caulobacter sRNA CC2171: a 166-nucleotide RNA from a Caulobacteraceae bacterium. By type it is a small RNA. NCBI's taxonomy places the organism under Bacteria, Pseudomonadota, Alphaproteobacteria, Caulobacterales, Caulobacteraceae. For this family Rfam cites "Small non-coding RNAs in Caulobacter crescentus" (Landt et al., Mol Microbiol, 2008).
[Rfam]
RNA sequence: CAACAGCUGAAAGGAGGUGAUCCAGUGUCUCACCAAAAACACACGGCAACCGCUCACGGAUCGAAGGGUUGCGGGGUUCUAACCGUCCUUUGAUCUGUGACGUCGUCUGACGACGCGGUUUGACCGUCGUUUGGUGUUGGGCCGGCUCUCGUAAGGGGGCCGGCCC
Numbered sequence: 001c002a003a004c005a006g007c008u009g010a011a012a013g014g015a016g017g018u019g020a021u022c023c024a025g026u027g028u029c030u031c032a033c034c035a036a037a038a039a040c041a042c043a044c045g046g047c048a049a050c051c052g053c054u055c056a057c058g059g060a061u062c063g064a065a066g067g068g069u070u071g072c073g074g075g076g077u078u079c080u081a082a083c084c085g086u087c088c089u090u091u092g093a094u095c096u097g098u099g100a101c102g103u104c105g106u107c108u109g110a111c112g113a114c115g116c117g118g119u120u121u122g123a124c125c126g127u128c129g130u131u132u133g134g135u136g137u138u139g140g141g142c143c144g145g146c147u148c149u150c151g152u153a154a155g156g157g158g159g160c161c162g163g164c165c166c
Stems, first nucleotide, its partner, number of pairs: 016023002031136007044074001047071005075084003094113002099107003116126004139166012